[Rfam]
RNA: FMN riboswitch aptamer (RFN element)
RNA sequence: AAAACUUCUCGGGGCGGGGUGCAAUUCCCCACCGGCGGUAUCGGGGCAACCCGGAGCCCGCGAGCGCCGUUUGAAGGGCCUUCUGGUGGAGGCCUGUCGACGGGUCAGCAGAUCUGGUGAGAUGCCAGAGCCGACGGUGAUAGUCCGGAUAUGAGAGAAGUCUG
Numbered sequence: 001a002a003a004a005c006u007u008c009u010c011g012g013g014g015c016g017g018g019g020u021g022c023a024a025u026u027c028c029c030c031a032c033c034g035g036c037g038g039u040a041u042c043g044g045g046g047c048a049a050c051c052c053g054g055a056g057c058c059c060g061c062g063a064g065c066g067c068c069g070u071u072u073g074a075a076g077g078g079c080c081u082u083c084u085g086g087u088g089g090a091g092g093c094c095u096g097u098c099g100a101c102g103g104g105u106c107a108g109c110a111g112a113u114c115u116g117g118u119g120a121g122a123u124g125c126c127a128g129a130g131c132c133g134a135c136g137g138u139g140a141u142a143g144u145c146c147g148g149a150u151a152u153g154a155g156a157g158a159a160g161u162c163u164g
Stems, first nucleotide, its partner, number of pairs: 004161007017029003031144002033133002035061004056131002064109002113129005135147003